The record is a 122-nucleotide RNA from Spelaeicoccus albus, which matches "FMN riboswitch aptamer (RFN element)" in Rfam.
RNA sequence: UACGUGCUCCGGGGUCGGUGAGAAUCCGAACCGGCGGUGAUAGUCCGCGACCCGCCCCAUGGCGGUUGACUCGGUGGAAUUCCGGGACCGACGGUAAUAGUCCGGAUGGGAGGAAGCACGGC
Number, nucleotide and partner (000 for none) at each position: 001u000002a000003c120004g119005u118006g117007c116008u115009c113010c112011g000012g000013g000014g000015u000016c028017g027018g026019u000020g000021a000022g000023a000024a000025u000026c018027c017028g016029a000030a101031c100032c090033g089034g048035c047036g046037g045038u000039g000040a000041u000042a000043g088044u087045c037046c036047g035048c034049g000050a000051c000052c065053c064054g000055c000056c000057c000058c000059a000060u000061g000062g000063c000064g053065g052066u000067u000068g000069a000070c086071u085072c084073g083074g082075u000076g000077g000078a000079a000080u000081u000082c074083c073084g072085g071086g070087a044088c043089c033090g032091a000092c104093g103094g102095u000096a000097a000098u000099a000100g031101u030102c094103c093104g092105g000106a000107u000108g000109g000110g000111a000112g010113g009114a000115a008116g007117c006118a005119c004120g003121g000122c000

The organism belongs to Spelaeicoccus, within Bacteria. Rfam describes the family as follows. The RFN element is a highly conserved domain that is found frequently in the 5'-untranslated regions of prokaryotic mRNAs that encode for flavin mononucleotide (FMN) biosynthesis and transport proteins.